The family of this 128-nucleotide RNA sequence from Litoreibacter arenae is "Ruegeria cis8 sRNA". A reference for the family is Rivers et al. (2016), "Experimental Identification of Small Non-Coding RNAs in the Model Marine Bacterium Ruegeria pomeroyi DSS-3", Front Microbiol. It scores 110 bits against the family's covariance model. The base pairs follow the family's consensus structure, which was predicted with RNAfold.
[Rfam]
RNA sequence: AUCGCCAGAAGCUUGGCGAUGUAGGGGAUCAGCGGCAAGUUCAGAAUCAGCAGCACCAGAUUGCCGAUGAACAUCGACAUAAUGACGGCCCAGAAGAUUUGCGGCUCGUCGAUCAUCAGGCGCGGGCC
Numbered sequence: 001a002u003c004g005c006c007a008g009a010a011g012c013u014u015g016g017c018g019a020u021g022u023a024g025g026g027g028a029u030c031a032g033c034g035g036c037a038a039g040u041u042c043a044g045a046a047u048c049a050g051c052a053g054c055a056c057c058a059g060a061u062u063g064c065c066g067a068u069g070a071a072c073a074u075c076g077a078c079a080u081a082a083u084g085a086c087g088g089c090c091c092a093g094a095a096g097a098u099u100u101g102c103g104g105c106u107c108g109u110c111g112a113u114c115a116u117c118a119g120g121c122g123c124g125g126g127c128c
Base pairs, nucleotide, nucleotide: 003018004017005016006015007014008013026128027127029125030124033122034121036119039113040112043109046106048104050102051101052100053099057096061093062092063091072084073083074082